Shown here is a 160-nucleotide RNA from Sesamum indicum, a member of the family "U1 spliceosomal RNA". Its Rfam clan is "U1 clan". By type it is a spliceosomal small nuclear RNA. Taxonomically the source falls in Sesamum (Eukaryota, Gunneridae, Pentapetalae, lamiids).
RNA sequence: AGACUUACCUAGACAAGGUCGAUGGACGAUCAUUAAUGUCCAUAGUUUAGGUUGGCAACCUUCAUUACAUUUGAGAGGGGCGCUCGCCUAAGAUCUAUCCAAAUGGUCGAGCUUAUAUUAUAAUUUAUGGUAAAAGAAUUUGUGUUCGCUCGAUUUUUAC
Numbered sequence: 001a002g003a004c005u006u007a008c009c010u011a012g013a014c015a016a017g018g019u020c021g022a023u024g025g026a027c028g029a030u031c032a033u034u035a036a037u038g039u040c041c042a043u044a045g046u047u048u049a050g051g052u053u054g055g056c057a058a059c060c061u062u063c064a065u066u067a068c069a070u071u072u073g074a075g076a077g078g079g080g081c082g083c084u085c086g087c088c089u090a091a092g093a094u095c096u097a098u099c100c101a102a103a104u105g106g107u108c109g110a111g112c113u114u115a116u117a118u119u120a121u122a123a124u125u126u127a128u129g130g131u132a133a134a135a136g137a138a139u140u141u142g143u144g145u146u147c148g149c150u151c152g153a154u155u156u157u158u159a160c
Base pairs, nucleotide, nucleotide: 012119013118015116016048017047018046019045021043023042024041025040026039027038049089050088051087053086055083056082059079060078061077062076063075091114092113094110095109098106099105135158136157137156138155141152142151144149